[Rfam]
RNA sequence: GGUAUGUAUUUUAAUCCCACGAUGAGCCCCGGAAGACUUAUUGUGAUUGAAAAUAAAUA
Numbered sequence: 001g002g003u004a005u006g007u008a009u010u011u012u013a014a015u016c017c018c019a020c021g022a023u024g025a026g027c028c029c030c031g032g033a034a035g036a037c038u039u040a041u042u043g044u045g046a047u048u049g050a051a052a053a054u055a056a057a058u059a
Base pairs, nucleotide, nucleotide: 007055008054009053010052011051012050018045019044020043021042022041023040024039025038026037
This 59-nucleotide RNA from Bacillus sp. V5-8f belongs to the Rfam family "Ribosomal protein L13 leader". From the family's description: This family is a putative r-protein leader autoregulatory structure found in B. subtilis and other low-GC Gram-positive bacteria.